[Rfam]
Nucleotides: 342
Stems, first nucleotide, its partner, number of pairs: 001338010011327001012307005018301001020035006040325003044322005049212004056244004061208005066080005081095001082093004096203002101201002103197003118142002120138007150168006169192001170190005175184003216264004226255006235249005271290008
Number, partner (000 for none) and nucleotide at each position: 001338u002337g003336a004335g005334u006333c007332a008331g009330u010329c011327a012307g013306g014305c015304a016303g017000c018301c019000g020035c021034u022033c023032c024031g025030c026000g027000u028000g029000a030025g031024c032023g033022g034021g035020g036000a037000g038000g039000a040325a041324a042323g043000u044322c045321c046320g047319g048318g049212c050211u051210c052209c053000a054000u055000a056244g057243g058242g059241u060000a061208a062207a063206g064205u065204g066080c067079c068078a069077g070076g071000u072000a073000a074000c075000g076070c077069c078068u079067g080066g081095g082093a083092a084091g085090c086000g087000c088000g089000a090085g091084c092083u093082u094000a095081c096203g097202g098000a099000a100000a101201g102200u103197g104196c105195c106000a107000c108000a109000g110000a111000a112000a113000a114000g115000a116000a117000a118142c119141c120138g121137c122136c123135c124134u125133g126132a127000u128000u129000u130000g131000u132126u133125c134124a135123g136122g137121g138120u139000a140000a141119g142118g143000g144000u145000g146000a147000a148000a149000a150168g151167g152166u153165g154164c155163g156000g157000u158000a159000a160000g161000a162000g163155c164154g165153c166152a167151c168150c169192g170190c171189g172188u173187a174186a175184c176183u177182g178000g179000u180000a181000a182177c183176a184175g185000c186174u187173u188172a189171c190170g191000g192169c193000a194000a195105g196104g197103u198000a199000a200102a201101c202097c203096c204065c205064a206063c207062u208061u209052g210051g211050a212049g213000c214000a215000a216264g217263g218262c219261c220000a221000a222000a223000u224000a225000g226255g227254a228253a229252c230251u231250c232000a233000a234000u235249a236248g237247u238246g239245u240000g241059a242058c243057c244056c245239g246238c247237a248236c249235u250231g251230a252229g253228u254227u255226u256000g257000g258000g259000u260000a261219g262218g263217c264216u265000g266000c267000u268000u269000g270000a271290g272289g273288u274287g275286c276285c277284u278283g279000g280000u281000a282000a283278c284277a285276g286275g287274c288273a289272u290271c291000c292000c293000a294000g295000a296000u297000a298000a299000a300000u301018g302000a303016c304015u305014g306013c307012c308000c309000u310000c311000g312000a313000c314000a315000g316000a317000a318048c319047c320046c321045g322044g323042c324041u325040u326000a327011u328000c329010g330009a331008c332007u333006g334005a335004c336003u337002c338001a339000c340000c341000u342000u
Bacterial RNase P class A: a 342-nucleotide sequence from Aquicella lusitana. The source organism's lineage runs through Bacteria, Pseudomonadota, Gammaproteobacteria, Coxiellaceae and Aquicella. It is annotated as a ribozyme. Rfam describes the family as follows. Ribonuclease P (RNase P) is a ubiquitous endoribonuclease, found in archaea, bacteria and eukarya as well as chloroplasts and mitochondria. The base pairs follow the family's consensus structure, which is taken from published work. A search with the family's covariance model found it, with a score of 349 bits.